[Rfam]
RNA sequence: UGCAGCCCUGUCAAAUUCGGUCCCUGCCCUUCUCUGUGGUGGGGACCGGCCAACCGGCUGCCACAGCGAAUUCUGUGGUCCACGUGCCGCACGUCCCCUCCCCAUGGGACACCAGGGGGUCAGAUCACACCACAGACACAU
Number, nucleotide and partner (000 for none) at each position: 001u000002g061003c060004a059005g058006c000007c000008c000009u000010g000011u000012c000013a000014a000015a000016u000017u000018c048019g047020g046021u045022c044023c043024c042025u041026g040027c039028c038029c000030u000031u000032c000033u000034c000035u000036g000037u000038g028039g027040u026041g025042g024043g023044g022045a021046c020047c019048g018049g000050c000051c000052a000053a000054c000055c000056g000057g000058c005059u004060g003061c002062c000063a000064c000065a000066g000067c000068g000069a000070a000071u000072u000073c000074u000075g133076u132077g131078g130079u129080c000081c000082a000083c000084g000085u000086g000087c119088c118089g000090c117091a000092c115093g000094u000095c000096c000097c000098c000099u000100c000101c000102c000103c000104a000105u000106g000107g000108g000109a000110c000111a000112c000113c000114a000115g092116g000117g090118g088119g087120u000121c000122a000123g000124a000125u000126c000127a000128c000129a079130c078131c077132a076133c075134a000135g000136a000137c000138a000139c000140a000141u000
Source information: Rfam assigns this 141-nucleotide RNA sequence from Caloenas nicobarica to the family "Small nucleolar RNA SNORA5". By type it is an H/ACA-box small nucleolar RNA. Clan: SNORA5 clan.